Rfam assigns this 46-nucleotide RNA from Lacipirellula parvula to the family "Acido-Lenti-1 RNA". Rfam classes the family as a small RNA. It scores 47 bits against the family's covariance model. Taxonomically the source falls in Lacipirellula (Bacteria, Pseudomonadati, Pirellulales, Lacipirellulaceae).
[Rfam]
RNA sequence: CCAGGGGCUAACGCCCCUGGCCACAUCAUGCCGCCCCUGCGGGGCU
Numbered sequence: 001c002c003a004g005g006g007g008c009u010a011a012c013g014c015c016c017c018u019g020g021c022c023a024c025a026u027c028a029u030g031c032c033g034c035c036c037c038u039g040c041g042g043g044g045c046u
Base pairs, nucleotide, nucleotide: 001020002019003018004017005016006015007014008013033045034044035043036042037041